[Rfam]
RNA sequence: AAGGCGGGAAUCGAAAAGCCUGUAAAAGAGUAGGAA
Numbered sequence: 001a002a003g004g005c006g007g008g009a010a011u012c013g014a015a016a017a018g019c020c021u022g023u024a025a026a027a028g029a030g031u032a033g034g035a036a
Base pairs, nucleotide, nucleotide: 002021003020004019005018011034012033
This 36-nucleotide RNA belongs to the Rfam family "DUF805b RNA". It is one of the family's seed sequences. It is annotated as a cis-regulatory element.